[Rfam]
RNA sequence: AGAACAAUGAGGAGGCAUCUAUAAAAUUAGUCUCUUCAUGAAACAACGUUGAGGUAUAUCAAAAUCAAAGGCCGAGAUAUCGUUUCAGUCGUCAUUUUUUCUCCAUUGACGCUCUGAUUGUUGCUCGUCCACAC
Dot-bracket structure: ......((((((((((.............))))))))))..............................((.((((..((((.....(.(((((.(........).))))).).)))).....)))).))....

Shown here is a 134-nucleotide RNA sequence from Hibiscus syriacus, a member of the family "Small nucleolar RNA snoR111". Rfam 15.1 lists 533 matches to the family in 223 species. For this family Rfam cites "Experimental RNomics: identification of 140 candidates for small non-messenger RNAs in the plant Arabidopsis thaliana" (Marker et al., Curr Biol, 2002). Rfam links the family to the GO terms nucleolus and RNA processing. NCBI's taxonomy places the organism under Eukaryota, Viridiplantae, Spermatophyta, malvids, Hibiscus.